The record is a 137-nucleotide RNA sequence from Populus trichocarpa, which matches "MIR480 microRNA precursor family" in Rfam. Lineage of the source: Eukaryota > Magnoliopsida > eudicotyledons > Salicaceae > Populus. A reference for the family is Lu et al. (2005), "Novel and mechanical stress-responsive MicroRNAs in Populus trichocarpa that are absent from Arabidopsis", Plant Cell.
RNA sequence: UAAUUUUUUUGGGGCAUGUUAUUAUCUAAUUAUAGCAGAUUCACAUCUAACUGCUCAAAAUCAUUCAUUAUCGUAAGCCCGACUAUAUCAUUGACACUCAAAAUAUAAUUGAAAGAAAAGGUUUAUUAAAUUAUGAU
Numbered sequence: 001u002a003a004u005u006u007u008u009u010u011g012g013g014g015c016a017u018g019u020u021a022u023u024a025u026c027u028a029a030u031u032a033u034a035g036c037a038g039a040u041u042c043a044c045a046u047c048u049a050a051c052u053g054c055u056c057a058a059a060a061u062c063a064u065u066c067a068u069u070a071u072c073g074u075a076a077g078c079c080c081g082a083c084u085a086u087a088u089c090a091u092u093g094a095c096a097c098u099c100a101a102a103a104u105a106u107a108a109u110u111g112a113a114a115g116a117a118a119a120g121g122u123u124u125a126u127u128a129a130a131u132u133a134u135g136a137u
Stems, first nucleotide, its partner, number of pairs: 004135001006133001008130002012126001014124001019119001023116001025114001027111005